[Rfam]
RNA sequence: CUGUACAUAUGCUCUUUUAGUAUUUCUCCAGUAGGUUUUCUCAAGGAGAAAGCCUUU
Numbered sequence: 001c002u003g004u005a006c007a008u009a010u011g012c013u014c015u016u017u018u019a020g021u022a023u024u025u026c027u028c029c030a031g032u033a034g035g036u037u038u039u040c041u042c043a044a045g046g047a048g049a050a051a052g053c054c055u056u057u
Base pairs, nucleotide, nucleotide: 034054035053036052037051038050039049040048041047
The record is a 57-nucleotide RNA sequence from Coregonus sp. 'balchen', which matches "U7 small nuclear RNA" in Rfam. It scores 43 bits against the family's covariance model. Rfam 15.1 lists 10,439 matches to the family in 569 species. The source organism's lineage runs through Eukaryota, Opisthokonta, Deuterostomia, Actinopterygii and Coregonus.